[Rfam]
MIR2619 microRNA precursor family: a 171-nucleotide RNA from Medicago truncatula. It scores 115 bits against the family's covariance model. Its family is annotated with RISC complex and miRNA-mediated post-transcriptional gene silencing in the Gene Ontology. Pairs were carried over by alignment from the consensus structure, which was predicted with RNAalifold.
RNA sequence: AAAUCGCCCACUAAGUUUUGCAACUGUAGUAGUUUUGGCCCUCAAUGCCAAUUUUUGGUAAAAAAAAAAUAACACAUGACACCUCACUUAGGGUGCCACGUCAACGUAGACCGAGUCAAAAUUGGCCUUGGGGACAAAAACUGCCACAAAUGCAAAACUUAGGGGCGGUUU
Numbered sequence: 001a002a003a004u005c006g007c008c009c010a011c012u013a014a015g016u017u018u019u020g021c022a023a024c025u026g027u028a029g030u031a032g033u034u035u036u037g038g039c040c041c042u043c044a045a046u047g048c049c050a051a052u053u054u055u056u057g058g059u060a061a062a063a064a065a066a067a068a069a070u071a072a073c074a075c076a077u078g079a080c081a082c083c084u085c086a087c088u089u090a091g092g093g094u095g096c097c098a099c100g101u102c103a104a105c106g107u108a109g110a111c112c113g114a115g116u117c118a119a120a121a122u123u124g125g126c127c128u129u130g131g132g133g134a135c136a137a138a139a140a141c142u143g144c145c146a147c148a149a150a151u152g153c154a155a156a157a158c159u160u161a162g163g164g165g166c167g168g169u170u171u
Base pairs, nucleotide, nucleotide: 001171002170004168005167006166007165008164012161013160014159015158016157017156018155019154020153021152022151025148026147027146029144030143031142032141033140034139035138036137038135040133041132042131043130044129045128074101075100077098078097080095081094082093083092